[Rfam]
RNA sequence: UUUUCAGGACGACCUGAAUAUUGAUGCUUUUAAUUAAUGGGGACGACCCCA
Numbered sequence: 001u002u003u004u005c006a007g008g009a010c011g012a013c014c015u016g017a018a019u020a021u022u023g024a025u026g027c028u029u030u031u032a033a034u035u036a037a038u039g040g041g042g043a044c045g046a047c048c049c050c051a
Stems, first nucleotide, its partner, number of pairs: 001020001003018006038051005
A member of the RNA family "Guanidine-II riboswitch aptamer (mini-ykkC)" from Providencia stuartii, 51 nucleotides long. Simpler in structure and has fewer highly conserved nucleotide positions than the ykkC-yxkD leader. Its family is annotated with regulation of gene expression in the Gene Ontology. It scores 44 bits against the family's covariance model. The base pairs follow the family's consensus structure, which is taken from published work.